Plant small nucleolar RNA R71: a 107-nucleotide sequence from Lactuca saligna.
The organism belongs to Lactuca, within Eukaryota.
Rfam 15.1 lists 278,378 matches to the family in 216 species.
Rfam classes the family as a C/D-box small nucleolar RNA.
Pairs were carried over by alignment from the consensus structure, which was predicted with PFOLD.
The literature on the family includes a 2003 paper in Trends Plant Sci by Brown et al., "Plant snoRNAs: functional evolution and new modes of gene expression".
Gene Ontology terms of the family: RNA processing and nucleolus.
[Rfam]
RNA sequence: AGGUUACGGUGUGGGCAGUUUCUUAGUAAGCUCUUGUACCUCUCCCAUGCUUCAUAUAGCGACUCUCCAGCUUGUUGUUUAAAGUUAGCAAUGGCCUUCUUCGACUU
Numbered sequence: 001a002g003g004u005u006a007c008g009g010u011g012u013g014g015g016c017a018g019u020u021u022c023u024u025a026g027u028a029a030g031c032u033c034u035u036g037u038a039c040c041u042c043u044c045c046c047a048u049g050c051u052u053c054a055u056a057u058a059g060c061g062a063c064u065c066u067c068c069a070g071c072u073u074g075u076u077g078u079u080u081a082a083a084g085u086u087a088g089c090a091a092u093g094g095c096c097u098u099c100u101u102c103g104a105c106u107u
Stems, first nucleotide, its partner, number of pairs: 001107001003105002006101001057074002